[Rfam]
RNA: Bacterial small signal recognition particle RNA
RNA sequence: GACCUGGAUCUAUGCGACUCCAACGCCUAAACCUUGUCAGGACCGGAAGGUAGCAGCAACACAGGAUGCUUGUAGUAGGCGUAGUCUCCGGGUCGCCC
Numbered sequence: 001g002a003c004c005u006g007g008a009u010c011u012a013u014g015c016g017a018c019u020c021c022a023a024c025g026c027c028u029a030a031a032c033c034u035u036g037u038c039a040g041g042a043c044c045g046g047a048a049g050g051u052a053g054c055a056g057c058a059a060c061a062c063a064g065g066a067u068g069c070u071u072g073u074a075g076u077a078g079g080c081g082u083a084g085u086c087u088c089c090g091g092g093u094c095g096c097c098c
Base pairs, nucleotide, nucleotide: 004091005090006089007088008087010084011083012082013081014080017076018075019074021072022071026065027064028063034059035058036057037056042051043050044049